The record is a 123-nucleotide RNA from Caenorhabditis angaria, which matches "Caenorhabditis snoRNA ceN110" in Rfam.
It scores 51 bits against the family's covariance model.
Rfam 15.1 lists 10 matches to the family in 9 species.
It is annotated as an H/ACA-box small nucleolar RNA.
RNA sequence: AAGCAGGCAUCCAUUACUAUAUCCGCAAAUGUGGUUAUAAGUUUAGUUAGUCCUGCGAGAUGAAUGACGUUUCGAAGGCGAAUUUUUGAAUUUAUGAGGAUUUUUGCUCAAAAACAGUUGAAC
Numbered sequence: 001a002a003g004c005a006g007g008c009a010u011c012c013a014u015u016a017c018u019a020u021a022u023c024c025g026c027a028a029a030u031g032u033g034g035u036u037a038u039a040a041g042u043u044u045a046g047u048u049a050g051u052c053c054u055g056c057g058a059g060a061u062g063a064a065u066g067a068c069g070u071u072u073c074g075a076a077g078g079c080g081a082a083u084u085u086u087u088g089a090a091u092u093u094a095u096g097a098g099g100a101u102u103u104u105u106g107c108u109c110a111a112a113a114a115c116a117g118u119u120g121a122a123c
Base pairs, nucleotide, nucleotide: 003056004055005054006053007052016042017041018040019038020037021036066118070113071112072111074109075108078107079106080105081104082103084100085099